[Rfam]
RNA sequence: GGCACCAGAAGAGGCGCGAAGCUUAGGUAAAAAACGACAGGAACCACAUUCCUAUGACCGUUUUUGAGGGAAGUUAUCGCCGAGGGUAUUUAACUGUGGACUUAAAUACCCGGUCAUUAAGGCUGAAUCCUUAUGACUGUCACCUAACGUAUUUGUUAACUUUUGCCUACUUUUUACCUACACAAUAGGUAUUAAUUAAAAAGGUAUUAAACAAAAGGUGGAGAGCUUCUGGCUGA
Numbered sequence: 001g002g003c004a005c006c007a008g009a010a011g012a013g014g015c016g017c018g019a020a021g022c023u024u025a026g027g028u029a030a031a032a033a034a035c036g037a038c039a040g041g042a043a044c045c046a047c048a049u050u051c052c053u054a055u056g057a058c059c060g061u062u063u064u065u066g067a068g069g070g071a072a073g074u075u076a077u078c079g080c081c082g083a084g085g086g087u088a089u090u091u092a093a094c095u096g097u098g099g100a101c102u103u104a105a106a107u108a109c110c111c112g113g114u115c116a117u118u119a120a121g122g123c124u125g126a127a128u129c130c131u132u133a134u135g136a137c138u139g140u141c142a143c144c145u146a147a148c149g150u151a152u153u154u155g156u157u158a159a160c161u162u163u164u165g166c167c168u169a170c171u172u173u174u175u176a177c178c179u180a181c182a183c184a185a186u187a188g189g190u191a192u193u194a195a196u197u198a199a200a201a202a203g204g205u206a207u208u209a210a211a212c213a214a215a216a217g218g219u220g221g222a223g224a225g226c227u228u229c230u231g232g233c234u235g236a
Stems, first nucleotide, its partner, number of pairs: 006231006016080004021075001022073003030065007084111010095100001112138004118133005140221006
RNA: Lysine riboswitch aptamer